[Rfam]
RNA sequence: AAACAGCCCCCUAUGUUUUGAUUCUUUGGCAGUUUUGAACCCCCAGUCCAGUGUUGACUCGGUCAAGUUGACGUGGCACCUUAAGUGAGGUGCCACGUGUCAAAUUUUUUAUUUUUAUUUUGCCUUGGGGGGUCAAAACUGCCAAAGAAUCAAAACAUAGGGGGCUGUUA
Numbered sequence: 001a002a003a004c005a006g007c008c009c010c011c012u013a014u015g016u017u018u019u020g021a022u023u024c025u026u027u028g029g030c031a032g033u034u035u036u037g038a039a040c041c042c043c044c045a046g047u048c049c050a051g052u053g054u055u056g057a058c059u060c061g062g063u064c065a066a067g068u069u070g071a072c073g074u075g076g077c078a079c080c081u082u083a084a085g086u087g088a089g090g091u092g093c094c095a096c097g098u099g100u101c102a103a104a105u106u107u108u109u110u111a112u113u114u115u116u117a118u119u120u121u122g123c124c125u126u127g128g129g130g131g132g133u134c135a136a137a138a139c140u141g142c143c144a145a146a147g148a149a150u151c152a153a154a155a156c157a158u159a160g161g162g163g164g165c166u167g168u169u170a
Stems, first nucleotide, its partner, number of pairs: 002169001004167005012159027040131006071098002074095008

Rfam assigns this 170-nucleotide sequence from Medicago truncatula to the family "MIR2619 microRNA precursor family". Gene Ontology terms of the family: miRNA-mediated post-transcriptional gene silencing and RISC complex. The base pairs follow the family's consensus structure, which was predicted with RNAalifold.